[Rfam]
The record is a 136-nucleotide sequence from Carlito syrichta, which matches "Small nucleolar RNA SNORA75" in Rfam. The family's RNA type in Rfam is H/ACA-box small nucleolar RNA.
RNA sequence: GUCUUCUCAUGAGCUCCUUUCUGUCUGUUGGUGGCAGUGUAGGGAUUCACACAAGAAGAAAAGAGAAUUCACAGAACUGGCAUCACUUUACCUUCUGUCUUUACAGAGGCAAAUUGAGCUGUUUUGUGAGUCAUUC
Numbered sequence: 001g002u003c004u005u006c007u008c009a010u011g012a013g014c015u016c017c018u019u020u021c022u023g024u025c026u027g028u029u030g031g032u033g034g035c036a037g038u039g040u041a042g043g044g045a046u047u048c049a050c051a052c053a054a055g056a057a058g059a060a061a062a063g064a065g066a067a068u069u070c071a072c073a074g075a076a077c078u079g080g081c082a083u084c085a086c087u088u089u090a091c092c093u094u095c096u097g098u099c100u101u102u103a104c105a106g107a108g109g110c111a112a113a114u115u116g117a118g119c120u121g122u123u124u125u126g127u128g129a130g131u132c133a134u135u136c
Stems, first nucleotide, its partner, number of pairs: 003058005013050001015045003021037005069129006092109006
Dot-bracket structure: ..(((((.....(.(((...(((((.......))))).....)))....)...)))))..........((((((.................((((((......))))))..............)))))).......
About this RNA: Rfam's curators write: U23 belongs to the H/ACA class of snoRNAs. snoRNAs bind a number of proteins (including dyskerin, Gar1p and Nop10p in the case of the H/ACA class) to form snoRNP complexes. For this family Rfam cites "The family of box ACA small nucleolar RNAs is defined by an evolutionarily conserved secondary structure and ubiquitous sequence elements essential for RNA accumulation" (Ganot et al., Genes Dev, 1997).